[Rfam]
RNA sequence: GCUUGUGCUGAGGGCCUGUUUUCUAAGCUACACACUGGUGACUUGUUCCUUACUCUUCUGUCUAGGGGAAAGGCCCCGGACCUACAUCAGAGAGUAGCAUGUGGCUACACAAAUUGACAUUCCCAUUUUCCAUACAAAGUCUACAGGAAGCUAAUAGGCAUAGCAGGAGCAGCAUGGUGAAGGGGCGUCCCCUUCAGCUCUUCUAGUUACACAGGCAGUGCACCUUCCCACAUGCACCAACCACACAGAGCUUGUUCUCAGUGUGGC
Numbered sequence: 001g002c003u004u005g006u007g008c009u010g011a012g013g014g015c016c017u018g019u020u021u022u023c024u025a026a027g028c029u030a031c032a033c034a035c036u037g038g039u040g041a042c043u044u045g046u047u048c049c050u051u052a053c054u055c056u057u058c059u060g061u062c063u064a065g066g067g068g069a070a071a072g073g074c075c076c077c078g079g080a081c082c083u084a085c086a087u088c089a090g091a092g093a094g095u096a097g098c099a100u101g102u103g104g105c106u107a108c109a110c111a112a113a114u115u116g117a118c119a120u121u122c123c124c125a126u127u128u129u130c131c132a133u134a135c136a137a138a139g140u141c142u143a144c145a146g147g148a149a150g151c152u153a154a155u156a157g158g159c160a161u162a163g164c165a166g167g168a169g170c171a172g173c174a175u176g177g178u179g180a181a182g183g184g185g186c187g188u189c190c191c192c193u194u195c196a197g198c199u200c201u202u203c204u205a206g207u208u209a210c211a212c213a214g215g216c217a218g219u220g221c222a223c224c225u226u227c228c229c230a231c232a233u234g235c236a237c238c239a240a241c242c243a244c245a246c247a248g249a250g251c252u253u254g255u256u257c258u259c260a261g262u263g264u265g266g267c
Stems, first nucleotide, its partner, number of pairs: 003266009014216006022066004027061002037051002040048002070253003074250001076248001087097001089095001100111004113188002122184003126181003130177004141172002144169001218237005
A member of the RNA family "RNase MRP" from Nomascus leucogenys, 267 nucleotides long. Rfam 15.1 lists 3,510 matches to the family in 2,315 species. The family's RNA type in Rfam is ribozyme. The family is grouped with related families in Rfam's "RNaseP clan".